[Rfam]
RNA sequence: GUCGCCGCGAGGCGGGGUGGGGAGCAACUGGAGGUGAAUCGGCAGUCCGUAGGAUAACGAACCUGUUUCGGCGUGAUGCUGUGGCGAGCCUGCUCAUUCAUGGCGAAGCCUGGAAAGAAUUGUUGGCGCUGAUGCGACUGAUAAAGCGACCAGCGGACAGAUUGCGUGGUUGAGGUCGGAAUGCCGGGAAGGCAAAGCGG
Numbered sequence: 001g002u003c004g005c006c007g008c009g010a011g012g013c014g015g016g017g018u019g020g021g022g023a024g025c026a027a028c029u030g031g032a033g034g035u036g037a038a039u040c041g042g043c044a045g046u047c048c049g050u051a052g053g054a055u056a057a058c059g060a061a062c063c064u065g066u067u068u069c070g071g072c073g074u075g076a077u078g079c080u081g082u083g084g085c086g087a088g089c090c091u092g093c094u095c096a097u098u099c100a101u102g103g104c105g106a107a108g109c110c111u112g113g114a115a116a117g118a119a120u121u122g123u124u125g126g127c128g129c130u131g132a133u134g135c136g137a138c139u140g141a142u143a144a145a146g147c148g149a150c151c152a153g154c155g156g157a158c159a160g161a162u163u164g165c166g167u168g169g170u171u172g173a174g175g176u177c178g179g180a181a182u183g184c185c186g187g188g189a190a191g192g193c194a195a196a197g198c199g200g
Base pairs, nucleotide, nucleotide: 002015003014004013005012006011028200029199030198034193035192039187040186041185042184043183045182046180047179048178049177062175063174064173071167072166073165075163076162077161079160080159081158083110084109085108088104089103090102
About this RNA
This 200-nucleotide RNA from Telmatospirillum siberiense belongs to the Rfam family "Group II catalytic intron D1-D4-3". Pairs were carried over by alignment from the consensus structure. Rfam 15.1 lists 4,274 matches to the family in 1,585 species. Taxonomically the source falls in Telmatospirillum (Bacteria, Pseudomonadota, Alphaproteobacteria, Rhodospirillaceae).